Description:
This 73-nucleotide sequence from Crypturellus undulatus belongs to the Rfam family "Small nucleolar RNA SNORD93". Rfam links the family to the GO terms nucleolus and RNA processing.

RNA sequence: UGGCCAGGGAUGGAAACCAUGAUCUGAUUCCUUGAUCUGAUCACUUGAUGGAUUAUAGGAUUUUCUGAGGCCA
Numbered sequence: 001u002g003g004c005c006a007g008g009g010a011u012g013g014a015a016a017c018c019a020u021g022a023u024c025u026g027a028u029u030c031c032u033u034g035a036u037c038u039g040a041u042c043a044c045u046u047g048a049u050g051g052a053u054u055a056u057a058g059g060a061u062u063u064u065c066u067g068a069g070g071c072c073a
Base pairs, nucleotide, nucleotide: 002072003071004070005069
It scores 62 bits against the family's covariance model. The base pairs follow the family's consensus structure, which was predicted with RNAalifold.